A member of the RNA family "UnaL2 LINE 3' element" from Sinocyclocheilus rhinocerous, 54 nucleotides long. Rfam 15.1 lists 493,311 matches to the family in 99 species.
RNA sequence: AUAUAUAUGCACUGUAAGUCGCUUUAGAUAAAAGCGUCUGCUAAAUGCAUAAAU
Numbered sequence: 001a002u003a004u005a006u007a008u009g010c011a012c013u014g015u016a017a018g019u020c021g022c023u024u025u026a027g028a029u030a031a032a033a034g035c036g037u038c039u040g041c042u043a044a045a046u047g048c049a050u051a052a053a054u
Base pairs, nucleotide, nucleotide: 013043014041015040016039020036021035022034023033024032025031